Rfam assigns this 114-nucleotide RNA sequence from Podarcis lilfordi to the family "Potassium channel RNA editing signal". Gene Ontology term of the family: adenosine to inosine editing. It scores 81 bits against the family's covariance model. The family's consensus secondary structure is taken from published work. Rfam's curators write: This family represents a group of sequences related to the human potassium channel Kv1.1 hairpin element which directs the efficient modification of an adenosine to inosine by an adenosine deaminase acting on RNA (ADAR). The ADAR modification causes an isoleucine/valine recoding event which lies in the ion-conducting pore of the potassium channel. It is thought that this editing event targets the process of fast inactivation and allows a more rapid recovery from inactivation at negative potentials. Taxonomically the source falls in Podarcis (Eukaryota, Metazoa, Bifurcata, Laterata). By type it is a cis-regulatory element.
[Rfam]
RNA sequence: UCCAGCUAUGGUGAUAUGGUCCCGAGCACCAUUGCAGGGAAGAUCUUCGGUUCCAUCUGCUCUCUGAGUGGGGUGCUGGUCAUCGCCCUCCCUGUACCUGUCAUCGUCUCCAAC
Numbered sequence: 001u002c003c004a005g006c007u008a009u010g011g012u013g014a015u016a017u018g019g020u021c022c023c024g025a026g027c028a029c030c031a032u033u034g035c036a037g038g039g040a041a042g043a044u045c046u047u048c049g050g051u052u053c054c055a056u057c058u059g060c061u062c063u064c065u066g067a068g069u070g071g072g073g074u075g076c077u078g079g080u081c082a083u084c085g086c087c088c089u090c091c092c093u094g095u096a097c098c099u100g101u102c103a104u105c106g107u108c109u110c111c112a113a114c
Base pairs, nucleotide, nucleotide: 001113005110008107009106010105011104013102014101015100016099018097021094037077038076040074049063050062